The family of this 64-nucleotide RNA sequence from Caenorhabditis brenneri is "mir-241 microRNA precursor family".
Rfam links the family to the GO terms RISC complex and miRNA-mediated post-transcriptional gene silencing.
The base pairs follow the family's consensus structure, which was predicted with RNAalifold.
Rfam's curators put it in the seed alignment.
On this family, see de Wit et al., Genome Res 2009: "Repertoire and evolution of miRNA genes in four divergent nematode species".

[Rfam]
RNA sequence: AGAGGUAGGUGCGAGAAAUGACGGGCAUCGUGCAAAUCGUUCAUUGUCUCCCAGCUACUUCAAC
Numbered sequence: 001a002g003a004g005g006u007a008g009g010u011g012c013g014a015g016a017a018a019u020g021a022c023g024g025g026c027a028u029c030g031u032g033c034a035a036a037u038c039g040u041u042c043a044u045u046g047u048c049u050c051c052c053a054g055c056u057a058c059u060u061c062a063a064c
Stems, first nucleotide, its partner, number of pairs: 002061007010053002013050004017045005